[Rfam]
The record is a 169-nucleotide RNA from Catagonus wagneri, which matches "Interferon gamma 5' UTR regulatory element" in Rfam. This family represents a pseudoknot containing stem-loop structure found in the 5' UTR of interferon (IFN) gamma mRNA. This structure is thought to be involved in translational regulation and the pseudoknot has been found to activate PKR which is known to be a translational inhibitor. The family has 5 seed sequences and 135 matches in Rfam 15.1. The family's consensus secondary structure is taken from published work. Taxonomically the source falls in Catagonus (Eukaryota, Metazoa, Eumetazoa, Dipnotetrapodomorpha). The family's RNA type in Rfam is cis-regulatory element.
RNA sequence: CAUUUUUCUGAUCAUCUUCAGAUCAGCUAUUGCAGGAGAAAAGUCAGCCAAGUCCUUUGGGCCUGAUCGACUUUAUAUAGGAGCUACUGAUUUCAACCACUUCGGCCUAACUCUCUCCGAAACAAUGAGUUACACAACUUAUUUCUUAGCUUUUCAGCUUUGCGUGAUU
Numbered sequence: 001c002a003u004u005u006u007u008c009u010g011a012u013c014a015u016c017u018u019c020a021g022a023u024c025a026g027c028u029a030u031u032g033c034a035g036g037a038g039a040a041a042a043g044u045c046a047g048c049c050a051a052g053u054c055c056u057u058u059g060g061g062c063c064u065g066a067u068c069g070a071c072u073u074u075a076u077a078u079a080g081g082a083g084c085u086a087c088u089g090a091u092u093u094c095a096a097c098c099a100c101u102u103c104g105g106c107c108u109a110a111c112u113c114u115c116u117c118c119g120a121a122a123c124a125a126u127g128a129g130u131u132a133c134a135c136a137a138c139u140u141a142u143u144u145c146u147u148a149g150c151u152u153u154u155c156a157g158c159u160u161u162g163c164g165u166g167a168u169u
Stems, first nucleotide, its partner, number of pairs: 009069006015120002020114003026106003032101001035098002041093007051085003056081004121169002125165003132142001134140001148159004